Rfam assigns this 86-nucleotide RNA sequence from Deinococcus apachensis to the family "c-di-GMP-II-GAG riboswitch aptamer". The sequence is in the family's curated seed alignment.

[Rfam]
Nucleotides: 086
Stems, first nucleotide, its partner, number of pairs: 003084001006081006013061003022055008037073002039069005
Number, partner (000 for none) and nucleotide at each position: 001000a002000a003084c004000a005000a006081u007080u008079c009078g010077g011076g012000a013061a014060g015059c016000a017000a018000u019000g020000a021000c022055c023054u024053u025052u026051u027050c028049c029048u030000c031000a032000u033000a034000a035000a036000c037073g038072g039069u040068c041067a042066c043065c044000g045000a046000g047000g048029a049028g050027g051026a052025a053024g054023a055022g056000u057000g058000a059015g060014c061013u062000a063000g064000u065043g066042g067041u068040g069039a070000g071000a072038c073037c074000g075000g076011c077010c078009c079008g080007g081006a082000g083000g084003g085000g086000g
Pairs were carried over by alignment from the consensus structure, which is taken from published work. Clan: c-di-GMP_II riboswitch clan. A reference for the family is Weinberg et al. (2017), "Bioinformatic analysis of riboswitch structures uncovers variant classes with altered ligand specificity", Proc Natl Acad Sci U S A.